[Rfam]
RNA sequence: UCUGCCUUCGAAUAACCGGAUGUGGAAAUUUGAGACUGCAUUCGGUUCAGACAAGGGCAUAUAAUAAAUAUGUGAGGGUGGUUGUGCUGGAAUUUAUUUCCUCACCUUUCCAUUUCCUCGUGAAUCAAUCUCAAUGGAAAGGGAUGAUAUUC
Numbered sequence: 001u002c003u004g005c006c007u008u009c010g011a012a013u014a015a016c017c018g019g020a021u022g023u024g025g026a027a028a029u030u031u032g033a034g035a036c037u038g039c040a041u042u043c044g045g046u047u048c049a050g051a052c053a054a055g056g057g058c059a060u061a062u063a064a065u066a067a068a069u070a071u072g073u074g075a076g077g078g079u080g081g082u083u084g085u086g087c088u089g090g091a092a093u094u095u096a097u098u099u100c101c102u103c104a105c106c107u108u109u110c111c112a113u114u115u116c117c118u119c120g121u122g123a124a125u126c127a128a129u130c131u132c133a134a135u136g137g138a139a140a141g142g143g144a145u146g147a148u149a150u151u152c
Base pairs, nucleotide, nucleotide: 003059004058005057006056007055008054014047015046016045017044018043019042020041021040023038024037025036070108072106074103075102076101078100081097082096084094114143115142116141